Background:
Shown here is a 161-nucleotide RNA sequence from Theobroma cacao, a member of the family "U1 spliceosomal RNA". The family's RNA type in Rfam is spliceosomal small nuclear RNA. The family is grouped with related families in Rfam's "U1 clan". Lineage of the source: Eukaryota > Viridiplantae > Tracheophyta > Byttnerioideae > Theobroma.
RNA sequence: AUACUUACCUGGACGGGGUCAAUGGGCGAUCAGAAAGGCUCAUGGCCUAGGUAGAUGGCCUCCAUUGCACUUCGGUGGUGCAUCUGUCUAAGGUCUCCCCAAGUGGGAGAGCCUACGUCAUAAUUUGUGGCAGAGGGGGCCUGCGUGCGCGCGGCCCCUAC
Numbered sequence: 001a002u003a004c005u006u007a008c009c010u011g012g013a014c015g016g017g018g019u020c021a022a023u024g025g026g027c028g029a030u031c032a033g034a035a036a037g038g039c040u041c042a043u044g045g046c047c048u049a050g051g052u053a054g055a056u057g058g059c060c061u062c063c064a065u066u067g068c069a070c071u072u073c074g075g076u077g078g079u080g081c082a083u084c085u086g087u088c089u090a091a092g093g094u095c096u097c098c099c100c101a102a103g104u105g106g107g108a109g110a111g112c113c114u115a116c117g118u119c120a121u122a123a124u125u126u127g128u129g130g131c132a133g134a135g136g137g138g139g140c141c142u143g144c145g146u147g148c149g150c151g152c153g154g155c156c157c158c159u160a161c
Stems, first nucleotide, its partner, number of pairs: 012119004016048006023042005049089003055083003060078002062075002091114003094110003098106002135159004142153004
U1 is a small nuclear RNA (snRNA) component of the spliceosome (involved in pre-mRNA splicing). Its 5' end forms complementary base pairs with the 5' splice junction, thus defining the 5' donor site of an intron. There are significant differences in sequence and secondary structure between metazoan and yeast U1 snRNAs, the latter being much longer (568 nucleotides as compared to 164 nucleotides in human).
The match comes from Rfam's covariance-model search (136 bits).